[Rfam]
RNA: FuFi-1 RNA
RNA sequence: UCACGAUGCGUAAGGCGUGUGUAUUAACAAUGCGGAACGGAAACCGCUAAAGUGAGUGGCGCACCAUAGAAGCCUGGAUUUUGCCCCAAGGUAUGGCUGCCUGGUAUCUACGAAGAACUGUAGAAAAACAUGGAUGAUACGCAGAGAAGCGGACAAACGCCUUCCAUGGAUCAGCUGACAUUGCAGUGCGUGCAGGUAAACAAAUUUCGAAGACAGGUCACUGUAGUAGAAUGGCUGGCGCUGUUCUAUGGGCAAAUACAGUGGCCUUUUC
Numbered sequence: 001u002c003a004c005g006a007u008g009c010g011u012a013a014g015g016c017g018u019g020u021g022u023a024u025u026a027a028c029a030a031u032g033c034g035g036a037a038c039g040g041a042a043a044c045c046g047c048u049a050a051a052g053u054g055a056g057u058g059g060c061g062c063a064c065c066a067u068a069g070a071a072g073c074c075u076g077g078a079u080u081u082u083g084c085c086c087c088a089a090g091g092u093a094u095g096g097c098u099g100c101c102u103g104g105u106a107u108c109u110a111c112g113a114a115g116a117a118c119u120g121u122a123g124a125a126a127a128a129c130a131u132g133g134a135u136g137a138u139a140c141g142c143a144g145a146g147a148a149g150c151g152g153a154c155a156a157a158c159g160c161c162u163u164c165c166a167u168g169g170a171u172c173a174g175c176u177g178a179c180a181u182u183g184c185a186g187u188g189c190g191u192g193c194a195g196g197u198a199a200a201c202a203a204a205u206u207u208c209g210a211a212g213a214c215a216g217g218u219c220a221c222u223g224u225a226g227u228a229g230a231a232u233g234g235c236u237g238g239c240g241c242u243g244u245u246c247u248a249u250g251g252g253c254a255a256a257u258a259c260a261g262u263g264g265c266c267u268u269u270u271c
Base pairs, nucleotide, nucleotide: 001059002058003057004056032047033046034045035044038209039208040207041206042205060190061189062188063187064186072092073091074090075089077087078232079231080230081229082228083227084226093181094180095179097177099175100174215267216266217265218264219263220262221261222260223259224258225257